[Rfam]
RNA sequence: AUUUGCUGUGAUGAAUCAUGAAACUACUCACAUGUCAGACUUCAGAGAUUUUUCCUCUUUCAUAGGGGAAGAGAUCUAUGAGAUAACAUUCAUGUUUCUGAGCAUAAU
Numbered sequence: 001a002u003u004u005g006c007u008g009u010g011a012u013g014a015a016u017c018a019u020g021a022a023a024c025u026a027c028u029c030a031c032a033u034g035u036c037a038g039a040c041u042u043c044a045g046a047g048a049u050u051u052u053u054c055c056u057c058u059u060u061c062a063u064a065g066g067g068g069a070a071g072a073g074a075u076c077u078a079u080g081a082g083a084u085a086a087c088a089u090u091c092a093u094g095u096u097u098c099u100g101a102g103c104a105u106a107a108u
Base pairs, nucleotide, nucleotide: 001108002106004104005103006102047076048075049074050073051072052071053070

Shown here is a 108-nucleotide sequence from Juglans regia, a member of the family "Small nucleolar RNA R64/Z200 family". A reference for the family is Galardi et al. (2002), "Purified box C/D snoRNPs are able to reproduce site-specific 2'-O-methylation of target RNA in vitro", Mol Cell Biol. Its family is annotated with nucleolus and RNA processing in the Gene Ontology. Rfam 15.1 lists 748 matches to the family in 228 species. The match comes from Rfam's covariance-model search (65 bits). Lineage of the source: Eukaryota > Embryophyta > Mesangiospermae > eudicotyledons > Juglans.